The record is a 77-nucleotide RNA from Sphingomonas sp. G-3-2-10, which matches "chrB-a RNA" in Rfam. Pairs were carried over by alignment from the consensus structure, which is taken from published work. Lineage of the source: Bacteria > Pseudomonadati > Sphingomonadales > Sphingomonadaceae > Sphingomonas.
RNA sequence: CUCAUGGGGAUUGCGAUCACCCCAUGAGGCGUCAGGCUGAAGCAUCGCGUCCUUCACCGACUUUAGGGCGCCCCAUG
Numbered sequence: 001c002u003c004a005u006g007g008g009g010a011u012u013g014c015g016a017u018c019a020c021c022c023c024a025u026g027a028g029g030c031g032u033c034a035g036g037c038u039g040a041a042g043c044a045u046c047g048c049g050u051c052c053u054u055c056a057c058c059g060a061c062u063u064u065a066g067g068g069c070g071c072c073c074c075a076u077g
Base pairs, nucleotide, nucleotide: 005024006023007022008021009020047071048070049069050068051067052066